[Rfam]
RNA sequence: CUACGGACUUAAUUGGAUUGAGUUUUGGUAUGGAAACUUACCAAGUAAUAAUUUUCAAAUUCAGAGAAACCCUGGAAUUCACAAUGGGCAAUCCUGAGCCAAAUCCUUUUUUCUGAAAACAAAGAAAAAUUCAGAAAGUUAUAAUAAAAAAGGGAUAGGUGCAGAGACUCUAUGGAAGCUGUUCUAACAAACGAAAUUGACGACUUUUUUUAUUGCAUUAGUAAAAGAAUCCUUUCACCAAAAUUACAGGAAUGGAUCACUGAAAUACUCUUUCAAUUUGUUACUUUUUCUUUAUUUUAUUAAUGAAGAUCGAUUUGUGAUAAAAAUAUUCACAAAUGAAAAAUGUGAAUCAAAUCAAUUCGAAGUUGAAGAAACGAUGGAAUAUUUAUUGAUGAAAUUAUUCACUUCAUCAUAAUCGGAUAAAACCCUUGAAGAACUGAUAAAUCAGAUGAGAAUAAAGAUAGAGUCCUAUUCUACAUGUCAAUACCGA
Number, nucleotide and partner (000 for none) at each position: 001c000002u000003a000004c000005g024006g000007a023008c022009u021010u020011a019012a018013u017014u000015g000016g000017a013018u012019u011020g010021a009022g008023u007024u005025u000026u000027g000028g000029u000030a038031u000032g000033g000034a000035a000036a000037c000038u030039u000040a000041c000042c000043a000044a000045g000046u000047a000048a000049u000050a180051a000052u178053u177054u176055u000056c174057a173058a000059a000060u000061u097062c096063a095064g094065a000066g092067a000068a000069a000070c088071c087072c086073u000074g000075g000076a000077a000078u000079u000080c000081a000082c000083a000084a000085u000086g072087g071088g070089c000090a000091a000092u066093c000094c064095u063096g062097a061098g160099c159100c000101a000102a000103a000104u154105c153106c152107u000108u000109u000110u000111u148112u147113c000114u000115g000116a000117a000118a000119a000120c000121a000122a000123a000124g000125a000126a000127a000128a000129a000130u000131u000132c000133a000134g000135a000136a000137a000138g000139u000140u000141a000142u000143a000144a000145u000146a000147a112148a111149a000150a000151a000152g106153g105154g104155a000156u000157a000158g000159g099160u098161g000162c000163a000164g469165a000166g468167a467168c466169u465170c464171u000172a000173u057174g056175g000176a054177a053178g052179c000180u050181g000182u455183u454184c453185u452186a000187a450188c000189a000190a000191a000192c000193g000194a000195a000196a000197u000198u000199g000200a000201c000202g000203a000204c000205u000206u000207u000208u000209u000210u000211u000212a000213u000214u000215g000216c000217a000218u000219u000220a000221g000222u000223a000224a000225a000226a000227g000228a000229a000230u000231c000232c000233u000234u000235u000236c000237a000238c000239c000240a000241a000242a000243a000244u000245u000246a000247c000248a000249g000250g000251a000252a000253u000254g000255g000256a000257u000258c000259a000260c000261u000262g000263a000264a000265a000266u000267a000268c000269u000270c000271u000272u000273u000274c000275a000276a000277u000278u000279u000280g000281u000282u000283a000284c000285u000286u000287u000288u000289u000290c000291u000292u000293u000294a000295u000296u000297u000298u000299a000300u000301u000302a000303a000304u000305g000306a000307a000308g000309a000310u000311c000312g000313a000314u000315u000316u000317g000318u000319g000320a000321u000322a000323a000324a000325a000326a000327u000328a000329u000330u000331c000332a000333c000334a000335a000336a000337u000338g000339a000340a000341a000342a000343a000344u000345g000346u000347g000348a000349a000350u000351c000352a000353a000354a000355u000356c000357a000358a000359u000360u000361c000362g000363a000364a000365g000366u000367u000368g000369a000370a000371g000372a000373a000374a000375c000376g000377a000378u000379g000380g000381a000382a000383u000384a000385u000386u000387u000388a000389u000390u000391g000392a000393u000394g000395a000396a000397a000398u000399u000400a000401u000402u000403c000404a000405c000406u000407u000408c000409a000410u000411c000412a000413u000414a000415a000416u000417c000418g000419g000420a000421u000422a000423a000424a000425a000426c000427c000428c000429u000430u000431g000432a000433a000434g000435a000436a000437c000438u000439g000440a000441u000442a000443a000444a000445u000446c000447a000448g000449a000450u187451g000452a185453g184454a183455a182456u000457a000458a000459a000460g000461a000462u000463a000464g170465a169466g168467u167468c166469c164470u000471a000472u000473u000474c000475u000476a000477c000478a485479u484480g000481u000482c000483a000484a479485u478486a000487c000488c000489g000490a000
Group I catalytic intron: a 490-nucleotide RNA sequence from Vigna angularis. From the family's description: Group I catalytic introns are large self-splicing ribozymes. NCBI's taxonomy places the organism under Eukaryota, Streptophyta, eudicotyledons, Fabaceae, Vigna angularis. The family has 12 seed sequences and 5,602 matches in Rfam 15.1.